Source information
This 86-nucleotide RNA sequence from Chrysochloris asiatica belongs to the Rfam family "mir-877 microRNA precursor family". Rfam links the family to the GO terms RISC complex and miRNA-mediated post-transcriptional gene silencing. Pairs were carried over by alignment from the consensus structure, which was predicted with RNAalifold.
RNA sequence: GUAGAGAAGAUGAUGCAGGGGAUGUGGGCUAACACCCAGGGCUUCCUGGGGCCCUCAAACGUCUGUCCUCUGCUCCCUUCUCCCAG
Numbered sequence: 001g002u003a004g005a006g007a008a009g010a011u012g013a014u015g016c017a018g019g020g021g022a023u024g025u026g027g028g029c030u031a032a033c034a035c036c037c038a039g040g041g042c043u044u045c046c047u048g049g050g051g052c053c054c055u056c057a058a059a060c061g062u063c064u065g066u067c068c069u070c071u072g073c074u075c076c077c078u079u080c081u082c083c084c085a086g
Stems, first nucleotide, its partner, number of pairs: 004082006012076001015073001017071008026062001028060001039055003043050002